A member of the RNA family "Plastid-psbA-3 3UTR RNA" from Dioscorea zingiberensis, 58 nucleotides long. The family is grouped with related families in Rfam's "Plastid-psbA 3UTR RNA clan". The literature on the family includes a 2023 paper in Plant Commun by Richter et al., "Retrograde signaling in plants: A critical review focusing on the GUN pathway and beyond". The family's RNA type in Rfam is cis-regulatory element. The family's consensus secondary structure was predicted with LocARNA. The match comes from Rfam's covariance-model search (58 bits). Rfam describes the family as follows. Plastid psbA-3 is a non-coding RNA (ncRNA) present in plastids. It was identified in inverted repeat sequences in the 3 prime untranslate region (3UTR) of photosystem II quinone-binding protein (psbA).
RNA sequence: GAAGGAGCAAUACCCAAUAUCUUGUUCGAGCAAGAGGUUUAGUAUUGCUCCCUUUUUU
Numbered sequence: 001g002a003a004g005g006a007g008c009a010a011u012a013c014c015c016a017a018u019a020u021c022u023u024g025u026u027c028g029a030g031c032a033a034g035a036g037g038u039u040u041a042g043u044a045u046u047g048c049u050c051c052c053u054u055u056u057u058u
Stems, first nucleotide, its partner, number of pairs: 001054002004051010020035005